The record is a 106-nucleotide RNA sequence from Homo sapiens, which matches "Y RNA" in Rfam. The family's RNA type in Rfam is non-coding RNA gene. The base pairs follow the family's consensus structure, which is taken from published work.
RNA sequence: GGCUGGUCCUAAGGUAGUGUGUUAUCAAUUGAUCAAAGUCAGUUACAGAUCGAACUCCUUGAUCUACUCUUUCCUCCUGCUCACUACUGCACUUGACUAGUCCAAA
Numbered sequence: 001g002g003c004u005g006g007u008c009c010u011a012a013g014g015u016a017g018u019g020u021g022u023u024a025u026c027a028a029u030u031g032a033u034c035a036a037a038g039u040c041a042g043u044u045a046c047a048g049a050u051c052g053a054a055c056u057c058c059u060u061g062a063u064c065u066a067c068u069c070u071u072u073c074c075u076c077c078u079g080c081u082c083a084c085u086a087c088u089g090c091a092c093u094u095g096a097c098u099a100g101u102c103c104a105a106a
Stems, first nucleotide, its partner, number of pairs: 001102008011093001014090002016085004021080001037068003041065002
NCBI's taxonomy places the organism under Eukaryota, Teleostomi, Eutheria, Homininae, Homo. Y RNAs are components of the Ro ribonucleoprotein particle (Ro RNP), in association with Ro60 and La proteins. The Y RNAs and Ro60 and La proteins are well conserved, but the function of the Ro RNP is not known. In humans the RNA component can be one of four small RNAs -- hY1, hY3, hY4 and hY5. These small RNAs are predicted to fold into a conserved secondary structure containing three stem structures. The largest of the four, hY1, contains an additional hairpin. This family includes a significant number of annotated pseudogenes and the model is expected to discriminate poorly between real and Y RNA related pseudogenes.